[Rfam]
RNA sequence: GCGCGGGCUGUGCCAAACGGACGCGACGGUGCAGAAGAACAUCGGAGUUUUUCCGUUUUCCUCCGAUGGCCAACGAAACGGCAGUCGAGCUUCUUACCCGUCCACCCG
Dot-bracket structure: .....((.(.((.(.....).)).(((((....((((..(((((((...............)))))))(((........))).......))))....))))).).)).
Numbered sequence: 001g002c003g004c005g006g007g008c009u010g011u012g013c014c015a016a017a018c019g020g021a022c023g024c025g026a027c028g029g030u031g032c033a034g035a036a037g038a039a040c041a042u043c044g045g046a047g048u049u050u051u052u053c054c055g056u057u058u059u060c061c062u063c064c065g066a067u068g069g070c071c072a073a074c075g076a077a078a079c080g081g082c083a084g085u086c087g088a089g090c091u092u093c094u095u096a097c098c099c100g101u102c103c104a105c106c107c108g
Stems, first nucleotide, its partner, number of pairs: 006107002009104001011023002014020001025102005034093004040068007069082003
Overview
Rhizobiales sRNA Atu_At1: a 108-nucleotide RNA sequence from Rhizobium sp. BK376. The family has 33 seed sequences and 200 matches in Rfam 15.1. It is annotated as a small RNA. The source organism's lineage runs through Bacteria, Alphaproteobacteria, Hyphomicrobiales, Rhizobiaceae and Rhizobium. The match comes from Rfam's covariance-model search (101 bits).